[Rfam]
RNA sequence: GAAGUAGAUCAGGCAACCGCGGAAUCGAAAGAUUCCGAGGAAAGUCCGAACACCACAGGGCAGGGUGCUGGGUAACACCCAGUCAGGGCGACCUGAAGGAAAGUGCCACAGAAAACAGACCGCCUAGGGUUCUUUACCCUGGGUAAGGGUGAAAAGGUGAGGUAAGAGCUCACCAGCAGGAAGGGUGACCUUCCUGGCUUGGCAAACCCCACCCGGUGCAAGGCCAAAUAGGAGGGGUUGAGGUGGCCCGCCGACCCUCGGGUUGGCCGCUUGAGGCAAGAAGUAAUUCUUGCCCUAGAUAGAUGGUUGCCGCCCCUAUAUGGGGAACAGAAUUCGGCUUAUGAUCUGCUUCUUCC
Numbered sequence: 001g002a003a004g005u006a007g008a009u010c011a012g013g014c015a016a017c018c019g020c021g022g023a024a025u026c027g028a029a030a031g032a033u034u035c036c037g038a039g040g041a042a043a044g045u046c047c048g049a050a051c052a053c054c055a056c057a058g059g060g061c062a063g064g065g066u067g068c069u070g071g072g073u074a075a076c077a078c079c080c081a082g083u084c085a086g087g088g089c090g091a092c093c094u095g096a097a098g099g100a101a102a103g104u105g106c107c108a109c110a111g112a113a114a115a116c117a118g119a120c121c122g123c124c125u126a127g128g129g130u131u132c133u134u135u136a137c138c139c140u141g142g143g144u145a146a147g148g149g150u151g152a153a154a155a156g157g158u159g160a161g162g163u164a165a166g167a168g169c170u171c172a173c174c175a176g177c178a179g180g181a182a183g184g185g186u187g188a189c190c191u192u193c194c195u196g197g198c199u200u201g202g203c204a205a206a207c208c209c210c211a212c213c214c215g216g217u218g219c220a221a222g223g224c225c226a227a228a229u230a231g232g233a234g235g236g237g238u239u240g241a242g243g244u245g246g247c248c249c250g251c252c253g254a255c256c257c258u259c260g261g262g263u264u265g266g267c268c269g270c271u272u273g274a275g276g277c278a279a280g281a282a283g284u285a286a287u288u289c290u291u292g293c294c295c296u297a298g299a300u301a302g303a304u305g306g307u308u309g310c311c312g313c314c315c316c317u318a319u320a321u322g323g324g325g326a327a328c329a330g331a332a333u334u335c336g337g338c339u340u341a342u343g344a345u346c347u348g349c350u351u352c353u354u355c356c
Stems, first nucleotide, its partner, number of pairs: 001352011012311007020037007042340003046337005051218004058249004063214005068082005083097001084095004098209002103207002105203003120148002122144009156174006176198001177196008222268004232259005242252003275294008

Bacterial RNase P class A: a 356-nucleotide sequence from Dictyoglomus thermophilum. The source organism's lineage runs through Bacteria, Pseudomonadati, Dictyoglomales, Dictyoglomaceae and Dictyoglomus thermophilum. Ribonuclease P (RNase P) is a ubiquitous endoribonuclease, found in archaea, bacteria and eukarya as well as chloroplasts and mitochondria. Its best characterised activity is the generation of mature 5'-ends of tRNAs by cleaving the 5'-leader elements of precursor-tRNAs. Cellular RNase Ps are ribonucleoproteins. RNA from bacterial RNase Ps retains its catalytic activity in the absence of the protein subunit, i.e. it is a ribozyme. Pairs were carried over by alignment from the consensus structure, which is taken from published work.